This 520-nucleotide part of an RNA from Paralcaligenes ureilyticus belongs to the Rfam family "Bacterial large subunit ribosomal RNA".
Its family is annotated with structural constituent of ribosome and ribosome in the Gene Ontology.
A search with the family's covariance model found it, with a score of 2806 bits.
Taxonomically the source falls in Paralcaligenes (Bacteria, Pseudomonadati, Pseudomonadota, Alcaligenaceae).

[Rfam]
RNA sequence: GACUAAGUGCAUGUGGUGGAUGCCUUGGCGAUCACAGGCGAAGAAGGACGUGGUAGUCUGCGAAAAGCGACGGGGAGCUGACAAACGAGCUUUGAUCCGUCGAUAUCCGAAUGGGGAAACCCACCGCGCAAGCGGUAUUCCUGGCUGAAUACAUAGGCCAGAGAAGGCGAACCGGGUGAACUGAAACAUCUCAGUAGCUCGAGGAAAAGAAAUCAACCGAGAUUCCGAUAGUAGCGGCGAGCGAACUCGGAACAGCCUUGACGUUUUAGCGUGUCUUAUAGUCGAACGGACUGGAAAGUCCGGCCAUAGCAGGUGAUAGCCCUGUAGACGAAAUGAGGCGCGUGGAACUAAGCGUCAGAGAAGUAGGGCGGGACACGUGAAAUCCUGCUUGAAGAUGGGGGGACCAUCCUCCAAGGCUAAAUACUCGUGAUCGACCGAUAGUGAACCAGUACCGUGAGGGAAAGGCGAAAAGAACCCCGGAAGGGGAGUGAAAUAGAUCCUGAAACCGCAUGCAUACAAA
Number, nucleotide and partner (000 for none) at each position: 001g000002a000003c000004u000005a000006a000007g515008u514009g513010c512011a511012u510013g509014u508015g507016g506017u000018g000019g000020a000021u000022g500023c465024c464025u000026u000027g436028g435029c433030g432031a431032u430033c429034a428035c427036a425037g424038g168039c167040g000041a000042a000043g000044a000045a000046g108047g107048a106049c062050g061051u060052g000053g000054u000055a000056g000057u000058c000059u000060g051061c050062g049063a000064a000065a000066a000067g000068c102069g101070a100071c099072g098073g097074g096075g000076a000077g090078c089079u088080g000081a000082c000083a000084a000085a000086c000087g000088a079089g078090c077091u000092u000093u000094g000095a000096u074097c073098c072099g071100u070101c069102g068103a000104u000105a000106u048107c047108c046109g000110a000111a000112u000113g122114g121115g120116g000117a000118a000119a000120c115121c114122c113123a136124c135125c134126g133127c132128g000129c000130a000131a000132g127133c126134g125135g124136u123137a000138u165139u164140c163141c161142u160143g159144g158145c157146u156147g000148a000149a000150u000151a000152c000153a000154u000155a000156g146157g145158c144159c143160a142161g141162a000163g140164a139165a138166g000167g039168c038169g000170a000171a000172c203173c201174g200175g199176g198177u197178g000179a000180a000181c000182u000183g190184a189185a000186a000187c000188a000189u184190c183191u000192c000193a000194g000195u000196a000197g177198c176199u175200c174201g173202a000203g172204g000205a000206a000207a000208a000209g000210a000211a000212a000213u220214c219215a000216a000217c000218c000219g214220a213221g000222a000223u421224u251225c250226c249227g248228a247229u000230a000231g000232u000233a000234g242235c241236g000237g000238c000239g000240a000241g235242c234243g000244a000245a000246c000247u228248c227249g226250g225251a224252a000253c000254a418255g417256c416257c415258u000259u000260g000261a000262c354263g353264u352265u351266u350267u345268a000269g343270c342271g341272u340273g339274u338275c337276u336277u335278a334279u333280a000281g329282u328283c327284g000285a000286a000287c302288g301289g300290a299291c298292u000293g000294g000295a000296a000297a000298g291299u290300c289301c288302g287303g000304c000305c309306a000307u000308a000309g305310c000311a323312g322313g321314u000315g000316a000317u000318a000319g000320c000321c313322c312323u311324g000325u000326a000327g283328a282329c281330g000331a000332a000333a279334u278335g277336a276337g275338g274339c273340g272341c271342g270343u269344g000345g267346a000347a000348c000349u000350a266351a265352g264353c263354g262355u000356c000357a000358g000359a000360g000361a000362a000363g000364u000365a000366g390367g389368g388369c387370g386371g385372g384373a383374c000375a000376c000377g000378u000379g000380a000381a000382a000383u373384c372385c371386u370387g369388c368389u367390u366391g000392a000393a000394g000395a000396u000397g412398g411399g410400g409401g408402g000403a000404c000405c000406a000407u000408c401409c400410u399411c398412c397413a000414a000415g257416g256417c255418u254419a000420a000421a223422u000423a000424c037425u036426c000427g035428u034429g033430a032431u031432c030433g029434a000435c028436c027437g000438a000439u000440a000441g000442u000443g000444a000445a000446c000447c000448a000449g000450u000451a000452c459453c458454g000455u000456g000457a000458g453459g452460g000461a000462a000463a000464g024465g023466c000467g000468a000469a000470a000471a000472g000473a000474a000475c486476c485477c484478c483479g000480g000481a000482a000483g478484g477485g476486g475487a000488g000489u000490g000491a000492a000493a000494u000495a000496g000497a000498u000499c000500c022501u000502g000503a000504a000505a000506c016507c015508g014509c013510a012511u011512g010513c009514a008515u007516a000517c000518a000519a000520a000